[Rfam]
RNA sequence: GGGCGGGCGUGGGCUAAUACAAGACCUGAAAGGGAAAUAUGCCCGCCGGCUUCUGACGGCUUUGAGCGCCUGCCCACCCAUUU
Numbered sequence: 001g002g003g004c005g006g007g008c009g010u011g012g013g014c015u016a017a018u019a020c021a022a023g024a025c026c027u028g029a030a031a032g033g034g035a036a037a038u039a040u041g042c043c044c045g046c047c048g049g050c051u052u053c054u055g056a057c058g059g060c061u062u063u064g065a066g067c068g069c070c071u072g073c074c075c076a077c078c079c080a081u082u083u
Stems, first nucleotide, its partner, number of pairs: 001075009012043003015039002025034003045060004
Dot-bracket structure: (((((((((..(((((........(((....)))...)).))).((((........))))......)))))))))........

Source information
The record is an 83-nucleotide RNA sequence from Candidatus Glomeribacter gigasporarum, which matches "sRNA-Xcc1" in Rfam. The family has 74 seed sequences and 421 matches in Rfam 15.1. Rfam classes the family as a small RNA. The match comes from Rfam's covariance-model search (70 bits).